[Rfam]
RNA sequence: UGAACGAACGUCAUUGAGUGCAGCGUUGAUGUAAUUUACUUUGUUUUUCCUCACUGUUGAAUAAAGUUAAAGUAAUUUACACCAGCGUUGCGCUCAAUUGUGUUUUUC
Numbered sequence: 001u002g003a004a005c006g007a008a009c010g011u012c013a014u015u016g017a018g019u020g021c022a023g024c025g026u027u028g029a030u031g032u033a034a035u036u037u038a039c040u041u042u043g044u045u046u047u048u049c050c051u052c053a054c055u056g057u058u059g060a061a062u063a064a065a066g067u068u069a070a071a072g073u074a075a076u077u078u079a080c081a082c083c084a085g086c087g088u089u090g091c092g093c094u095c096a097a098u099u100g101u102g103u104u105u106u107u108c
Stems, first nucleotide, its partner, number of pairs: 006105006013098016030081003
The record is a 108-nucleotide sequence from Eutrema salsugineum, which matches "MIR397 microRNA precursor family" in Rfam. Its family is annotated with RISC complex and miRNA-mediated post-transcriptional gene silencing in the Gene Ontology. Pairs were carried over by alignment from the consensus structure, which was predicted with WAR. On this family, see Mica et al., BMC Genomics 2009: "High throughput approaches reveal splicing of primary microRNA transcripts and tissue specific expression of mature microRNAs in Vitis vinifera". The organism belongs to Eutrema, within Eukaryota.